[Rfam]
RNA sequence: CCCUCCUACGAAGGCAUGUCUGUGGUUCCCUGUCUUUGGACAGGUAAGAAUUGGAAGCAAAGAAAUGUGGAUGUGGAGAAGUCUAGGGUCAGCUUGUUCGCCAAAGGCUCAAGAUCAACCAUCCCGCAUAG
Numbered sequence: 001c002c003c004u005c006c007u008a009c010g011a012a013g014g015c016a017u018g019u020c021u022g023u024g025g026u027u028c029c030c031u032g033u034c035u036u037u038g039g040a041c042a043g044g045u046a047a048g049a050a051u052u053g054g055a056a057g058c059a060a061a062g063a064a065a066u067g068u069g070g071a072u073g074u075g076g077a078g079a080a081g082u083c084u085a086g087g088g089u090c091a092g093c094u095u096g097u098u099c100g101c102c103a104a105a106g107g108c109u110c111a112a113g114a115u116c117a118a119c120c121a122u123c124c125c126g127c128a129u130a131g
Base pairs, nucleotide, nucleotide: 002057004055005054006053015044017042018041019040020039021038024030025029069124070123071122091109092108093107094106095105097103
The family of this 131-nucleotide RNA sequence from Phyllostomus discolor is "Small nucleolar RNA SNORA38". Rfam 15.1 lists 628 matches to the family in 149 species. Pairs were carried over by alignment from the consensus structure, which was predicted with RNAfold. Rfam classes the family as an H/ACA-box small nucleolar RNA. ACA38 is a member of the H/ACA class of snoRNA that guide the sites of modification of uridines to pseudouridines. Gene Ontology terms of the family: nucleolus, Cajal body and RNA processing.